This 127-nucleotide RNA from Sphaeramia orbicularis belongs to the Rfam family "U4atac minor spliceosomal RNA".
RNA sequence: GCAAUCCUUGUCUUGGGGUGAGUGAGCUACUCAAUGAACGACUAGUGAGAGGAGCUCUGCUGACACCAUAAUGACACAUCUGCAUCACCUGAACUCUGGUUCAGAGUAUGGUGCAAUUUUUGGAAAC
Numbered sequence: 001g002c003a004a005u006c007c008u009u010g011u012c013u014u015g016g017g018g019u020g021a022g023u024g025a026g027c028u029a030c031u032c033a034a035u036g037a038a039c040g041a042c043u044a045g046u047g048a049g050a051g052g053a054g055c056u057c058u059g060c061u062g063a064c065a066c067c068a069u070a071a072u073g074a075c076a077c078a079u080c081u082g083c084a085u086c087a088c089c090u091g092a093a094c095u096c097u098g099g100u101u102c103a104g105a106g107u108a109u110g111g112u113g114c115a116a117u118u119u120u121u122g123g124a125a126a127c
Stems, first nucleotide, its partner, number of pairs: 006018004022060003026055003030051003038046002082114006089104006
It is annotated as a spliceosomal small nuclear RNA. The organism belongs to Sphaeramia, within Eukaryota. The family is grouped with related families in Rfam's "U4 clan". Rfam links the family to the GO terms mRNA 5'-splice site recognition, spliceosomal tri-snRNP complex assembly and U4atac snRNP.